[Rfam]
RNA sequence: CCAUCAUCAUCACCAUAUAGCAUAGCCUUUCAGGUUCGUGCUGGGAGGUUAUUGUUUCCUUCCAGUGGCGCAGAUGCAGAUUCUCGACCCCCGGAAGGAGACUUCCGGGGGUUUUU
Numbered sequence: 001c002c003a004u005c006a007u008c009a010u011c012a013c014c015a016u017a018u019a020g021c022a023u024a025g026c027c028u029u030u031c032a033g034g035u036u037c038g039u040g041c042u043g044g045g046a047g048g049u050u051a052u053u054g055u056u057u058c059c060u061u062c063c064a065g066u067g068g069c070g071c072a073g074a075u076g077c078a079g080a081u082u083c084u085c086g087a088c089c090c091c092c093g094g095a096a097g098g099a100g101a102c103u104u105c106c107g108g109g110g111g112u113u114u115u116u
Base pairs, nucleotide, nucleotide: 008040009039010038012035013034014033020031041065042064043063044062045061046060047059048058086113087112088111089110090109091108092107093106094105095104096103097102